The family of this 135-nucleotide RNA sequence from Rattus norvegicus is "Small nucleolar RNA SNORA17".
Rfam 15.1 lists 5,784 matches to the family in 673 species.
Rfam describes the family as follows. snoRNA ACA 17 belongs to the H/ACA family of snoRNAs and is predicted to guide pseudouridylation of the 28S rRNA at positions U4659 and U4598.
Clan: SNORA17 clan.
The literature on the family includes a 1997 paper in J Mol Biol by Ofengand and Bakin, "Mapping to nucleotide resolution of pseudouridine residues in large subunit ribosomal RNAs from representative eukaryotes, prokaryotes, archaebacteria, mitochondria and chloroplasts".
The source organism's lineage runs through Eukaryota, Metazoa, Tetrapoda, Boreoeutheria and Rattus.
It is annotated as an H/ACA-box small nucleolar RNA.
Rfam links the family to the GO terms nucleolus and RNA processing.
Nucleotides: 135
Base pairs, nucleotide, nucleotide: 002066003065004064006063007062008060010058011057012056014054015053021050022049023048026043027042028041029040030039031038076129077128079126080125081124082123084121087118088117089116090115091113093111094110095109
Number, partner (000 for none) and nucleotide at each position: 001000u002066c003065u004064g005000g006063g007062c008060c009000c010058u011057g012056c013000a014054g015053a016000g017000g018000u019000g020000u021050g022049c023048a024000g025000g026043u027042g028041u029040g030039g031038c032000u033000g034000c035000u036000g037000u038031g039030c040029c041028a042027c043026a044000u045000a046000c047000g048023u049022g050021u051000u052000g053015u054014u055000a056012g057011u058010a059000u060008g061000u062007g063006u064004c065003a066002g067000a068000a069000a070000a071000c072000a073000g074000a075000g076129a077128g078000a079126g080125a081124c082123u083000a084121u085000g086000c087118u088117c089116a090115g091113u092000a093111u094110u095109c096000u097000g098000u099000u100000c101000u102000g103000a104000c105000u106000u107000g108000u109095g110094a111093a112000c113091a114000u115090c116089u117088g118087a119000a120000a121084a122000a123082a124081g125080u126079c127000c128077c129076u130000g131000a132000a133000a134000a135000g